[Rfam]
RNA sequence: CUGUCGUGCAUUGUAGUUGCAUUGCAUGUGUCUGCUUCUGUGCAAUGCACCUGUGAUGCAAUACAG
Number, nucleotide and partner (000 for none) at each position: 001c066002u065003g064004u063005c000006g062007u060008g059009c058010a057011u056012u055013g054014u053015a052016g051017u000018u000019g048020c000021a046022u045023u044024g043025c042026a041027u040028g000029u000030g000031u000032c000033u000034g000035c000036u000037u000038c000039u000040g027041u026042g025043c024044a023045a022046u021047g000048c019049a000050c000051c016052u015053g014054u013055g012056a011057u010058g009059c008060a007061a000062u006063a004064c003065a002066g001
RNA: mir-33 microRNA precursor family